[Rfam]
RNA sequence: AGAUCACAAGACAGCGUGAGUGGGUUGUGCCUAUUUAAUGUAGGACCGCGCCCAGGAAAGUCCCCGGGCUUCUUUCCGCAGAGAUGCGGCCUUGGAAACAAGUGAGCUUCCAGCGUGAGAGUCCAUUUCGCCUUCAGUGUGAUAUGGCCGAGACAAGUGUGGAGCCUUUGGACUCUCGCCGAAGUAGAUUGGCCAACGGCACAGUUAUUCACGCGGUCCAUUGGGCUAACUGAACGGGGCUUACGAUCUUGUGGUC
Numbered sequence: 001a002g003a004u005c006a007c008a009a010g011a012c013a014g015c016g017u018g019a020g021u022g023g024g025u026u027g028u029g030c031c032u033a034u035u036u037a038a039u040g041u042a043g044g045a046c047c048g049c050g051c052c053c054a055g056g057a058a059a060g061u062c063c064c065c066g067g068g069c070u071u072c073u074u075u076c077c078g079c080a081g082a083g084a085u086g087c088g089g090c091c092u093u094g095g096a097a098a099c100a101a102g103u104g105a106g107c108u109u110c111c112a113g114c115g116u117g118a119g120a121g122u123c124c125a126u127u128u129c130g131c132c133u134u135c136a137g138u139g140u141g142a143u144a145u146g147g148c149c150g151a152g153a154c155a156a157g158u159g160u161g162g163a164g165c166c167u168u169u170g171g172a173c174u175c176u177c178g179c180c181g182a183a184g185u186a187g188a189u190u191g192g193c194c195a196a197c198g199g200c201a202c203a204g205u206u207a208u209u210c211a212c213g214c215g216g217u218c219c220a221u222u223g224g225g226c227u228a229a230c231u232g233a234a235c236g237g238g239g240c241u242u243a244c245g246a247u248c249u250u251g252u253g254g255u256c
Stems, first nucleotide, its partner, number of pairs: 002256010014214006022053003058242003062239004077088004091102004106185003113179003117175002133172004146166003155160001216226004
A member of the RNA family "RNase MRP" from Camellia sinensis, 256 nucleotides long. RNase MRP is an enzymatically active ribonucleoprotein with two distinct roles in eukaryotes. The source organism's lineage runs through Eukaryota, Embryophyta, Ericales, Theaceae and Camellia. It scores 72 bits against the family's covariance model.